[Rfam]
RNA sequence: AGGUGUCCCAAAGGGGUGACCUGAGAACACAAGAGGCAUUAGUUAUUGAAUGCCUCUUGUGUUCUCAGGCAUCACUCCUUUGGGGCAACC
Numbered sequence: 001a002g003g004u005g006u007c008c009c010a011a012a013g014g015g016g017u018g019a020c021c022u023g024a025g026a027a028c029a030c031a032a033g034a035g036g037c038a039u040u041a042g043u044u045a046u047u048g049a050a051u052g053c054c055u056c057u058u059g060u061g062u063u064c065u066c067a068g069g070c071a072u073c074a075c076u077c078c079u080u081u082g083g084g085g086c087a088a089c090c
Stems, first nucleotide, its partner, number of pairs: 007084002011080004016075004023066010

About this RNA:
A member of the RNA family "MIR398 microRNA precursor family" from Prunus avium, 90 nucleotides long. The match comes from Rfam's covariance-model search (68 bits). Rfam 15.1 lists 627 matches to the family in 211 species. The base pairs follow the family's consensus structure, which was predicted with WAR. NCBI's taxonomy places the organism under Eukaryota, Streptophyta, Euphyllophyta, Rosales, Prunus. The literature on the family includes a 2004 paper in Mol Cell by Jones-Rhoades and Bartel, "Computational identification of plant microRNAs and their targets, including a stress-induced miRNA".